[Rfam]
RNA sequence: AUAUUCUCAAGGCAAACCCGCCGUAAGGCGGCGACGCAAAGCUACAGGGGCCAUAUCGGUUCGAUGGGUCAGCCAGCUGCGGUC
Numbered sequence: 001a002u003a004u005u006c007u008c009a010a011g012g013c014a015a016a017c018c019c020g021c022c023g024u025a026a027g028g029c030g031g032c033g034a035c036g037c038a039a040a041g042c043u044a045c046a047g048g049g050g051c052c053a054u055a056u057c058g059g060u061u062c063g064a065u066g067g068g069u070c071a072g073c074c075a076g077c078u079g080c081g082g083u084c
Base pairs, nucleotide, nucleotide: 012037013036018031019030020029021028022027040078041077042076043075047074048073049070050069051068056064057063058062
c-di-GMP-I riboswitch aptamer: an 84-nucleotide sequence from Eggerthella sp. YY7918. The source organism's lineage runs through Bacteria, Actinomycetota, Coriobacteriia, Eggerthellales and Eggerthella. A search with the family's covariance model found it, with a score of 56 bits. The base pairs follow the family's consensus structure, which is taken from published work.